[Rfam]
RNA sequence: UGGUCUCUACCAAGGCUGCUAGAAAAUUUUAUUUCUCGUAUGCUGUGGACGUGACCAUAAAACAACUCCUCUAGAUUUUUACAUUGCUGCCUUGGUAGCAAUAAAUCUGGUGGGAACAUUA
Dot-bracket structure: ..(((.(..(((..............(.(..........).)...)))..).))).............(((..((((.......(((..........)))...))))....))).......

The family of this 121-nucleotide RNA sequence from Laticauda laticaudata is "Small nucleolar RNA SNORA32". About the family: ACA32 is a member of the H/ACA class of snoRNA that guide the sites of modification of uridines to pseudouridines. By type it is an H/ACA-box small nucleolar RNA. Rfam 15.1 lists 615 matches to the family in 234 species.